Description
Shown here is an 89-nucleotide RNA sequence from Gossypium anomalum, a member of the family "Small nucleolar RNA R16". Taxonomically the source falls in Gossypium (Eukaryota, Tracheophyta, Gunneridae, Pentapetalae). The base pairs follow the family's consensus structure, which was predicted with PFOLD. It scores 48 bits against the family's covariance model. Rfam classes the family as a C/D-box small nucleolar RNA. On this family, see Galardi et al., Mol Cell Biol 2002: "Purified box C/D snoRNPs are able to reproduce site-specific 2'-O-methylation of target RNA in vitro".
[Rfam]
RNA sequence: GGUGGCAAGGGAUGAAUAUUAUCUUAUCCUACACUCUGAUUCAACCGUGUAGAUUCAAAAUUUUUGCUUAUUGAUAUUCUGAUGUCAUU
Numbered sequence: 001g002g003u004g005g006c007a008a009g010g011g012a013u014g015a016a017u018a019u020u021a022u023c024u025u026a027u028c029c030u031a032c033a034c035u036c037u038g039a040u041u042c043a044a045c046c047g048u049g050u051a052g053a054u055u056c057a058a059a060a061u062u063u064u065u066g067c068u069u070a071u072u073g074a075u076a077u078u079c080u081g082a083u084g085u086c087a088u089u
Stems, first nucleotide, its partner, number of pairs: 003087005